[Rfam]
RNA sequence: AGCGAAGUAGGAUUUUAUGCGUCAAGUGUUCGCAGGCUGGGGAGUCGCCGCGAAACGAAAAGCAGAGCAUGAGAGCUUGGUCUUACGAUAUAUAAUCCGCACCCGUUGCU
Numbered sequence: 001a002g003c004g005a006a007g008u009a010g011g012a013u014u015u016u017a018u019g020c021g022u023c024a025a026g027u028g029u030u031c032g033c034a035g036g037c038u039g040g041g042g043a044g045u046c047g048c049c050g051c052g053a054a055a056c057g058a059a060a061a062g063c064a065g066a067g068c069a070u071g072a073g074a075g076c077u078u079g080g081u082c083u084u085a086c087g088a089u090a091u092a093u094a095a096u097c098c099g100c101a102c103c104c105g106u107u108g109c110u
Stems, first nucleotide, its partner, number of pairs: 001110005010098005016092004020087003026056002029054005035049002040104003044100001060084003